[Rfam]
RNA sequence: AGAUGAGAGAAACACCUCGUCCGCAGGGGACUGCGGGCGGAGCCGAGCCGGUACGUCCCCAGUGCCGACCCGGCCGUGCCUUCGCGCACACCACUGGAGCCCUGCGCUCCGGACAUCCUCACCGAUCGGA
Numbered sequence: 001a002g003a004u005g006a007g008a009g010a011a012a013c014a015c016c017u018c019g020u021c022c023g024c025a026g027g028g029g030a031c032u033g034c035g036g037g038c039g040g041a042g043c044c045g046a047g048c049c050g051g052u053a054c055g056u057c058c059c060c061a062g063u064g065c066c067g068a069c070c071c072g073g074c075c076g077u078g079c080c081u082u083c084g085c086g087c088a089c090a091c092c093a094c095u096g097g098a099g100c101c102c103u104g105c106g107c108u109c110c111g112g113a114c115a116u117c118c119u120c121a122c123c124g125a126u127c128g129g130a
Base pairs, nucleotide, nucleotide: 004121005120006119007118009117010116017040018039019038020037021036022035023034024033025032026031042074043073044072045071047069049067050066051065052064053063054062076089077088078087079086094112095111096110097109098108099107100106122129123128
RNA: Streptomyces RNA 5676